[Rfam]
RNA sequence: GAAUUUUGAAAAUUCCGAUUCUAUUUGCCUAAGGCAUGCGCUAUGGCGGAUGGAACGACAGGGUGCUUGAGAAAACGAAGGCGCCUCCCAUUGUGGAAAGGAGUUUGAAUUUGUAUACA
Numbered sequence: 001g002a003a004u005u006u007u008g009a010a011a012a013u014u015c016c017g018a019u020u021c022u023a024u025u026u027g028c029c030u031a032a033g034g035c036a037u038g039c040g041c042u043a044u045g046g047c048g049g050a051u052g053g054a055a056c057g058a059c060a061g062g063g064u065g066c067u068u069g070a071g072a073a074a075a076c077g078a079a080g081g082c083g084c085c086u087c088c089c090a091u092u093g094u095g096g097a098a099a100g101g102a103g104u105u106u107g108a109a110u111u112u113g114u115a116u117a118c119a
Stems, first nucleotide, its partner, number of pairs: 011105006019055011033042003061086008071076001087096002
RNA: Molybdenum/Tungsten riboswitch aptamer (Moco RNA motif)